Rfam assigns this 97-nucleotide RNA from Erysipelothrix larvae to the family "Purine riboswitch aptamer". Riboswitches are metabolite binding domains within certain messenger RNAs that serve as precision sensors for their corresponding targets. The family's consensus secondary structure is taken from published work.

RNA sequence: UAAUAGAUUAUUGAUUUUUAUCAUAUAUGCAUUCAAUUGGGAAUGUGUUUCUACCUGGAACCGUAAAUUCCAGACUAUGAUAGAAAGUUCUUUUUGG
Numbered sequence: 001u002a003a004u005a006g007a008u009u010a011u012u013g014a015u016u017u018u019u020a021u022c023a024u025a026u027a028u029g030c031a032u033u034c035a036a037u038u039g040g041g042a043a044u045g046u047g048u049u050u051c052u053a054c055c056u057g058g059a060a061c062c063g064u065a066a067a068u069u070c071c072a073g074a075c076u077a078u079g080a081u082a083g084a085a086a087g088u089u090c091u092u093u094u095u096g097g
Base pairs, nucleotide, nucleotide: 018083019082020081021080022079023078024077025076029046030045031044032043033042034041055073056072057071058070059069060068
Dot-bracket structure: .................((((((((...((((((......))))))........((((((.......))))))..))))))))..............
The source organism's lineage runs through Bacteria, Bacillati, Erysipelotrichia, Erysipelotrichales and Erysipelothrix.